[Rfam]
RNA sequence: CGCUGUUCUCAGGGCGGGGUGAAAUUCCCCACCGGCGGUAAAUGGGAAACCCCCAUGAGCCCGCGAGCGGCUUUGGUUCGGUCCAAAGUGUCAGCAGAUCCGGUGAAACUCCGGAGCCGACGGUCAUAGUCCGGAUGAAAGAGAACGUGC
Numbered sequence: 001c002g003c004u005g006u007u008c009u010c011a012g013g014g015c016g017g018g019g020u021g022a023a024a025u026u027c028c029c030c031a032c033c034g035g036c037g038g039u040a041a042a043u044g045g046g047a048a049a050c051c052c053c054c055a056u057g058a059g060c061c062c063g064c065g066a067g068c069g070g071c072u073u074u075g076g077u078u079c080g081g082u083c084c085a086a087a088g089u090g091u092c093a094g095c096a097g098a099u100c101c102g103g104u105g106a107a108a109c110u111c112c113g114g115a116g117c118c119g120a121c122g123g124u125c126a127u128a129g130u131c132c133g134g135a136u137g138a139a140a141g142a143g144a145a146c147g148u149g150c
Base pairs, nucleotide, nucleotide: 004147005146006145007144008143009142010141017029018028019027031130032129033119034118035064036063037062038061059117060116067095068094099115100114101113102112103111121133122132123131
RNA: FMN riboswitch aptamer (RFN element)
Organism: Shimia thalassica